[Rfam]
This 352-nucleotide RNA from Tateyamaria sp. ANG-S1 belongs to the Rfam family "Alphaproteobacteria transfer-messenger RNA". The family is grouped with related families in Rfam's "tRNA clan". The family's RNA type in Rfam is non-coding RNA gene.
RNA sequence: CAGAUUGCAAAGAGCGCGUGGCUGACAUAUUUAUGUGAUGUCCUUCGGGACUAUGGACAUAAACGCGCUCGUAAUAAGCGGAUCGGACCCGGGGGCGGUACCCGGCGGCUCCACCAAAUAUCCUGUCGUUUGCGGGAUCAUGGGGCCGAAACAGGAUCGACGGACGUCUAAAGGGGUUUGCUUUGUCUCGGCUGUCUGCCACCGUUACCGGCGAAAACAGUACAAUUGCAAACGACAAUCGUGCUCCGGUUGCAAUGGCUGCGUAAGCAGCCCUUGUCGAACCGACUUUAAGCCCUUGCGCCUAGCCGCGUAAGGCGGGGUUCGCAGGCACCUGGCAACAGAAGCCUGCACU
Numbered sequence: 001c002a003g004a005u006u007g008c009a010a011a012g013a014g015c016g017c018g019u020g021g022c023u024g025a026c027a028u029a030u031u032u033a034u035g036u037g038a039u040g041u042c043c044u045u046c047g048g049g050a051c052u053a054u055g056g057a058c059a060u061a062a063a064c065g066c067g068c069u070c071g072u073a074a075u076a077a078g079c080g081g082a083u084c085g086g087a088c089c090c091g092g093g094g095g096c097g098g099u100a101c102c103c104g105g106c107g108g109c110u111c112c113a114c115c116a117a118a119u120a121u122c123c124u125g126u127c128g129u130u131u132g133c134g135g136g137a138u139c140a141u142g143g144g145g146c147c148g149a150a151a152c153a154g155g156a157u158c159g160a161c162g163g164a165c166g167u168c169u170a171a172a173g174g175g176g177u178u179u180g181c182u183u184u185g186u187c188u189c190g191g192c193u194g195u196c197u198g199c200c201a202c203c204g205u206u207a208c209c210g211g212c213g214a215a216a217a218c219a220g221u222a223c224a225a226u227u228g229c230a231a232a233c234g235a236c237a238a239u240c241g242u243g244c245u246c247c248g249g250u251u252g253c254a255a256u257g258g259c260u261g262c263g264u265a266a267g268c269a270g271c272c273c274u275u276g277u278c279g280a281a282c283c284g285a286c287u288u289u290a291a292g293c294c295c296u297u298g299c300g301c302c303u304a305g306c307c308g309c310g311u312a313a314g315g316c317g318g319g320g321u322u323c324g325c326a327g328g329c330a331c332c333u334g335g336c337a338a339c340a341g342a343a344g345c346c347u348g349c350a351c352u
Stems, first nucleotide, its partner, number of pairs: 040051004055188005065181002067177004079166002083163003089105005106148007189204003195214002198212003318333004324349006